[Rfam]
RNA sequence: GGUUUCUAUAGGUGUAAAUCCACUUACCUCAAUUCAAGAUGAGAAGCAAUUCUCCAUUGGUAGUAAAUGGAUAUCCAUUAAGUGGAGGAAAUAUUAG
Numbered sequence: 001g002g003u004u005u006c007u008a009u010a011g012g013u014g015u016a017a018a019u020c021c022a023c024u025u026a027c028c029u030c031a032a033u034u035c036a037a038g039a040u041g042a043g044a045a046g047c048a049a050u051u052c053u054c055c056a057u058u059g060g061u062a063g064u065a066a067a068u069g070g071a072u073a074u075c076c077a078u079u080a081a082g083u084g085g086a087g088g089a090a091a092u093a094u095u096a097g
Stems, first nucleotide, its partner, number of pairs: 011021002052087004056078002059075004064070001